Bacterial RNase P class A: a 379-nucleotide sequence from Mucilaginibacter sp. JRF. It scores 238 bits against the family's covariance model.

RNA sequence: CCUGCAAAACGUUCUAUCGCUCCGUUUAGGCGGGGAGGAAAGUCCGGGCAACGCAGAGCAUCCUGCUUCCUAACGGGAAGGCGCCGGCAGCCGGCGACAGCAAGUGCCACAGAGAAUAUACCGCCCGCAAGGGUAAGGGUGAAAACGUGAGGUAAGAGCUCACGGCUUUUCCGGGCGACCGGGAUCGCGGUAAACCUCAGGAGUUGAAAGACCAAAUAGGUCCUGAUCAGUGAAGUUGCUCGCUUCCGUGCCGGUUUUACUAUCGGGCAUCAGGAUGGGUAGGUUGCUUACGAGCCUGUUAGCAAUGGCAGGCCCAGAUAAAUGAUAGAAGCCAUAAGCAAUUAUGGAACAGAACCCGGCUUAUAAUUUUGCUGCUGAU
Numbered sequence: 001c002c003u004g005c006a007a008a009a010c011g012u013u014c015u016a017u018c019g020c021u022c023c024g025u026u027u028a029g030g031c032g033g034g035g036a037g038g039a040a041a042g043u044c045c046g047g048g049c050a051a052c053g054c055a056g057a058g059c060a061u062c063c064u065g066c067u068u069c070c071u072a073a074c075g076g077g078a079a080g081g082c083g084c085c086g087g088c089a090g091c092c093g094g095c096g097a098c099a100g101c102a103a104g105u106g107c108c109a110c111a112g113a114g115a116a117u118a119u120a121c122c123g124c125c126c127g128c129a130a131g132g133g134u135a136a137g138g139g140u141g142a143a144a145a146c147g148u149g150a151g152g153u154a155a156g157a158g159c160u161c162a163c164g165g166c167u168u169u170u171c172c173g174g175g176c177g178a179c180c181g182g183g184a185u186c187g188c189g190g191u192a193a194a195c196c197u198c199a200g201g202a203g204u205u206g207a208a209a210g211a212c213c214a215a216a217u218a219g220g221u222c223c224u225g226a227u228c229a230g231u232g233a234a235g236u237u238g239c240u241c242g243c244u245u246c247c248g249u250g251c252c253g254g255u256u257u258u259a260c261u262a263u264c265g266g267g268c269a270u271c272a273g274g275a276u277g278g279g280u281a282g283g284u285u286g287c288u289u290a291c292g293a294g295c296c297u298g299u300u301a302g303c304a305a306u307g308g309c310a311g312g313c314c315c316a317g318a319u320a321a322a323u324g325a326u327a328g329a330a331g332c333c334a335u336a337a338g339c340a341a342u343u344a345u346g347g348a349a350c351a352g353a354a355c356c357c358g359g360c361u362u363a364u365a366a367u368u369u370u371g372c373u374g375c376u377g378a379u
Stems, first nucleotide, its partner, number of pairs: 002374001004372006011364001012330007020035006040362003044359005049206004061202005066080005081098001082096004099197002104195002106191003121138002123134004146164006169184006210285004220276006255265001294313008